Shown here is a 45-nucleotide sequence from Blastopirellula retiformator, a member of the family "Acido-Lenti-1 RNA". The match comes from Rfam's covariance-model search (41 bits). It is annotated as a small RNA. Pairs were carried over by alignment from the consensus structure, which is taken from published work. The source organism's lineage runs through Bacteria, Planctomycetota, Planctomycetia, Pirellulales and Blastopirellula.
[Rfam]
RNA sequence: CCUGGGGCUGCGCCCCAGGCUAGGUUGGAUCGGCCCUCCGGGCCU
Numbered sequence: 001c002c003u004g005g006g007g008c009u010g011c012g013c014c015c016c017a018g019g020c021u022a023g024g025u026u027g028g029a030u031c032g033g034c035c036c037u038c039c040g041g042g043c044c045u
Stems, first nucleotide, its partner, number of pairs: 001019008032044005